[Rfam]
RNA sequence: GCCGAGCUCAGUAGCGUGAGCUUGUAACCUGUGCAGGGGCACUAAAGUGGUGGGAAUGUGGUUCCACUCAACUGGGUCGGGUGCGAGGUGGCUACUAGUUGGCCUGCCCAUUCCAAACCAAGGGUUGAGCCAUGUGACUUGGGUGAAGGCUUUGGGUCUCAUGGUUUCUAGAGUGGAGGGAACUGCGUGAAGCUGGUUUCACAGAGCAGCGACUACCUUCCACCCCUGGCAGUGGAAGGAUUACAGGUCGAUGCUUACCUGCGCCCAUCAAGACCCGUUGAGUUCUUCCUAAAUGAACCACCACUUUU
Dot-bracket structure: ((((((((((......)))))))....(((....))))))...((((((((((.....(((....(((((((..(((((((((((.(.(((.((....((((((((.((.(((((..(((.((((.((((((((.(((((((((....))).)))))).))))))))(....).(((((......(((....(((......)))....)))....))))).)))).)))...)))))))....)))))))))).)))).))))))).....)))).))))))).....)))......)))))))))).
RNA: Plant signal recognition particle RNA